A member of the RNA family "Group II catalytic intron D1-D4-6" from Pontiella sulfatireligans, 221 nucleotides long. Rfam links the family to the GO term Group II intron splicing. The source organism's lineage runs through Bacteria, Pseudomonadati, Kiritimatiellia, Kiritimatiellales and Pontiella. About the family: Group II introns are found in rRNA, tRNA and mRNA of organelles in fungi, plants and protists, and also in mRNA in bacteria.
RNA sequence: AGAGUCUUACAUUGAAAUCUUAGCGAGAAACAAUGGCCCCGAGUCAUGCGUCGACGAUCCGCGAGGACGUGGCGAAGCGUUGACAGGGGAAAGCAUAAGCCGAAUUAUUGAGCUCCGAAAUCACCAGUUACCAGAUGGCAUACCCAGUGGACUGCAGGGGACGCGAAAUGGAAUGCCGCGUAAUCGCGAGUGGCAUACCACUCUGGCGGAGUCAAAGAACC
Dot-bracket structure: .........(((((...((([.[[.)))..))))).((((..(((((((((((.((.(((....))))))))))...)).)))).))))...................((.((((((.............(((((.(((...(((...........)))...))....(((.(((((((......]].]))))))).)))))))))))))))).)......